Description:
The family of this 175-nucleotide sequence from Roseburia sp. OF03-24 is "FMN riboswitch aptamer (RFN element)". Gene Ontology term of the family: FMN binding. Pairs were carried over by alignment from the consensus structure, which is taken from published work. The match comes from Rfam's covariance-model search (87 bits).
[Rfam]
RNA sequence: UUAAUUCUUCGGGGCAGGGUGAUGCAGUAAGAUUUGCAGAUUCCCGACCGACGGUGACGUAGAGAGUGCUGAUCUUAUAGGAUCAGAUUCAUUUACAAAGUCCGUGACCUGCUAAGGCAGCUGAUCCGGUGAGAUUCCGGAACCGACAGUAUAGUCUGGAUGAGAGAAGAUAAGC
Numbered sequence: 001u002u003a004a005u006u007c008u009u010c011g012g013g014g015c016a017g018g019g020u021g022a023u024g025c026a027g028u029a030a031g032a033u034u035u036g037c038a039g040a041u042u043c044c045c046g047a048c049c050g051a052c053g054g055u056g057a058c059g060u061a062g063a064g065a066g067u068g069c070u071g072a073u074c075u076u077a078u079a080g081g082a083u084c085a086g087a088u089u090c091a092u093u094u095a096c097a098a099a100g101u102c103c104g105u106g107a108c109c110u111g112c113u114a115a116g117g118c119a120g121c122u123g124a125u126c127c128g129g130u131g132a133g134a135u136u137c138c139g140g141a142a143c144c145g146a147c148a149g150u151a152u153a154g155u156c157u158g159g160a161u162g163a164g165a166g167a168a169g170a171u172a173a174g175c
Stems, first nucleotide, its partner, number of pairs: 006170005017045003047155002049145002051105004109120002125141005147158003